Shown here is a 76-nucleotide RNA sequence from Homarus americanus, a member of the family "mir-1 microRNA precursor family". The source organism's lineage runs through Eukaryota, Protostomia, Pleocyemata, Astacidea and Homarus. The base pairs follow the family's consensus structure, which was predicted with RNAalifold. On this family, see Ambros, Cell 2001: "microRNAs: tiny regulators with great potential". The match comes from Rfam's covariance-model search (65 bits). Rfam 15.1 lists 4,474 matches to the family in 965 species. Its family is annotated with miRNA-mediated post-transcriptional gene silencing and RISC complex in the Gene Ontology.

[Rfam]
RNA sequence: CCUACGGCCCCGUGCUUCCUUACGUCCCAUACGCAUAUACACAGCUAUGGAAUGUAAAGAAGUAUGGAGUUGUGGG
Numbered sequence: 001c002c003u004a005c006g007g008c009c010c011c012g013u014g015c016u017u018c019c020u021u022a023c024g025u026c027c028c029a030u031a032c033g034c035a036u037a038u039a040c041a042c043a044g045c046u047a048u049g050g051a052a053u054g055u056a057a058a059g060a061a062g063u064a065u066g067g068a069g070u071u072g073u074g075g076g
Stems, first nucleotide, its partner, number of pairs: 007070002010067009020057006027050005